[Rfam]
RNA: Small nucleolar RNA Z247
RNA sequence: CACCUUGACAAUGAUGAUCUUGUCUCCUACAUCCUUGCUGGUUUGGAUGUUGAUUUUAAUCCGGUUGUGAUGUCCGUUGCAAACUGGACUGAAGCUAUCACUGUGGGUGAACUCUUUGCUCAACUUGUUAGCUUUCAGA
Numbered sequence: 001c002a003c004c005u006u007g008a009c010a011a012u013g014a015u016g017a018u019c020u021u022g023u024c025u026c027c028u029a030c031a032u033c034c035u036u037g038c039u040g041g042u043u044u045g046g047a048u049g050u051u052g053a054u055u056u057u058a059a060u061c062c063g064g065u066u067g068u069g070a071u072g073u074c075c076g077u078u079g080c081a082a083a084c085u086g087g088a089c090u091g092a093a094g095c096u097a098u099c100a101c102u103g104u105g106g107g108u109g110a111a112c113u114c115u116u117u118g119c120u121c122a123a124c125u126u127g128u129u130a131g132c133u134u135u136c137a138g139a
Stems, first nucleotide, its partner, number of pairs: 004138002007135002088108003092104001